[Rfam]
RNA sequence: GUUUACAUCUUACCGGGCAGCAUUAGAUGGUAAACGAAAUUUUCUAAUACUGUCAGGUAAAGAUGUCGUC
Numbered sequence: 001g002u003u004u005a006c007a008u009c010u011u012a013c014c015g016g017g018c019a020g021c022a023u024u025a026g027a028u029g030g031u032a033a034a035c036g037a038a039a040u041u042u043u044c045u046a047a048u049a050c051u052g053u054c055a056g057g058u059a060a061a062g063a064u065g066u067c068g069u070c
Stems, first nucleotide, its partner, number of pairs: 003068001005066005010060005016054005022048006
A member of the RNA family "mir-8/mir-141/mir-200 microRNA precursor family" from Trichogramma brassicae, 70 nucleotides long. Taxonomically the source falls in Trichogramma (Eukaryota, Bilateria, Neoptera, Proctotrupomorpha). On this family, see Lagos-Quintana et al., Science 2001: "Identification of novel genes coding for small expressed RNAs". The family is grouped with related families in Rfam's "mir-8 microRNA precursor clan". The family has 164 seed sequences and 2,669 matches in Rfam 15.1.